[Rfam]
Nucleotides: 103
Base pairs, nucleotide, nucleotide: 019088020087021086022085023084024083025082029050030049032048033047034046035045036044059079060078061077062076063075064074065073
Number, partner (000 for none) and nucleotide at each position: 001000u002000c003000u004000a005000a006000a007000c008000u009000u010000g011000a012000a013000u014000a015000u016000c017000g018000a019088a020087c021086u022085c023084g024083u025082a026000u027000a028000a029050u030049u031000c032048a033047u034046g035045g036044g037000a038000a039000u040000a041000u042000g043000g044036c045035c046034c047033g048032u049030a050029a051000g052000u053000c054000u055000c056000u057000a058000c059079c060078a061077a062076g063075c064074g065073a066000c067000c068000g069000u070000a071000a072000a073065u074064u075063g076062c077061u078060u079059g080000a081000c082025u083024a084023c085022g086021a087020g088019u089000g090000a091000a092000a093000g094000u095000g096000c097000g098000u099000c100000u101000a102000g103000g
A member of the RNA family "Purine riboswitch aptamer" from Tumebacillus flagellatus, 103 nucleotides long. It scores 80 bits against the family's covariance model. The base pairs follow the family's consensus structure, which is taken from published work. Lineage of the source: Bacteria > Bacilli > Caryophanales > Alicyclobacillaceae > Tumebacillus.